[Rfam]
RNA sequence: CUCCAUGGUCUCAUGGGGGCUGCCGGUCGUGGCCGUUCCCCUUCCUAGACAUGGAAGAGCAGCAGCUUGCUAAUUGGCAAGGCUUUUACCGUGCCGUUGGUAUCAGUUGUUGACUGUAGCAAGUAACACGC
Numbered sequence: 001c002u003c004c005a006u007g008g009u010c011u012c013a014u015g016g017g018g019g020c021u022g023c024c025g026g027u028c029g030u031g032g033c034c035g036u037u038c039c040c041c042u043u044c045c046u047a048g049a050c051a052u053g054g055a056a057g058a059g060c061a062g063c064a065g066c067u068u069g070c071u072a073a074u075u076g077g078c079a080a081g082g083c084u085u086u087u088a089c090c091g092u093g094c095c096g097u098u099g100g101u102a103u104c105a106g107u108u109g110u111u112g113a114c115u116g117u118a119g120c121a122a123g124u125a126a127c128a129c130g131c
Base pairs, nucleotide, nucleotide: 002055003054004053005052006051007050015041016040017039018038020035022033023032024031068128069127071125074122075121076120077117078116080115083106084105088101089100090099091098
RNA: Small nucleolar RNA SNORA24